[Rfam]
RNA sequence: AUUGCACACAAAACCCAAAGAACAUUAUUAAUUUUGUAAUGUGCUUGUCUGGUGUGCAUAUAUUAACUGUACCUUGUCGCCUUUCAUGAGCUGAAGUGCUCAUAAAAGUGAAGUAGAUGGUCCAACACUC
Number, nucleotide and partner (000 for none) at each position: 001a000002u000003u058004g057005c056006a055007c054008a053009c052010a000011a000012a000013a000014c000015c000016c000017a000018a000019a000020g044021a000022a042023c041024a040025u039026u038027a037028u036029u000030a000031a000032u000033u000034u000035u000036g028037u027038a026039a025040u024041g023042u022043g000044c020045u000046u000047g000048u000049c000050u000051g000052g009053u008054g007055u006056g005057c004058a003059u000060a000061u000062a000063u000064u000065a000066a000067c000068u000069g123070u000071a121072c120073c119074u000075u117076g000077u000078c000079g000080c000081c108082u107083u106084u105085c000086a103087u102088g101089a100090g099091c098092u000093g000094a000095a000096g000097u000098g091099c090100u089101c088102a087103u086104a000105a084106a083107a082108g081109u000110g000111a000112a000113g000114u000115a000116g000117a075118u000119g073120g072121u071122c000123c069124a000125a000126c000127a000128c000129u000130c000

The record is a 130-nucleotide RNA sequence from Microcaecilia unicolor, which matches "Small nucleolar RNA SNORA68" in Rfam.
The family's consensus secondary structure was predicted with PFOLD.
Lineage of the source: Eukaryota > Opisthokonta > Gnathostomata > Sarcopterygii > Microcaecilia.
It scores 87 bits against the family's covariance model.
For this family Rfam cites "The family of box ACA small nucleolar RNAs is defined by an evolutionarily conserved secondary structure and ubiquitous sequence elements essential for RNA accumulation" (Ganot et al., Genes Dev, 1997).
U68 is a member of the H/ACA class of small nucleolar RNAs (snoRNAs) which act as guides in the the modification of uridines to pseudouridines.